RNA sequence: UUCUCACCCAUCAGCACAGAAUUUUUCGCUAACAGAAACCUCAAAACAAUGUAAGUGAAUUGUUUUGUGUAGAUGGUGGAAAUGAGC
Numbered sequence: 001u002u003c004u005c006a007c008c009c010a011u012c013a014g015c016a017c018a019g020a021a022u023u024u025u026u027c028g029c030u031a032a033c034a035g036a037a038a039c040c041u042c043a044a045a046a047c048a049a050u051g052u053a054a055g056u057g058a059a060u061u062g063u064u065u066u067g068u069g070u071a072g073a074u075g076g077u078g079g080a081a082a083u084g085a086g087c
Stems, first nucleotide, its partner, number of pairs: 003086004008076005014070009025059006031052001032050001
This 87-nucleotide sequence from Caenorhabditis elegans belongs to the Rfam family "mir-785 microRNA precursor family". Rfam 15.1 lists 6 matches to the family in 6 species. The source organism's lineage runs through Eukaryota, Metazoa, Rhabditida, Rhabditoidea and Caenorhabditis. Gene Ontology terms of the family: RISC complex and miRNA-mediated post-transcriptional gene silencing. For this family Rfam cites "Large-scale sequencing reveals 21U-RNAs and additional microRNAs and endogenous siRNAs in C. elegans" (Ruby et al., Cell, 2006). The sequence is in the family's curated seed alignment.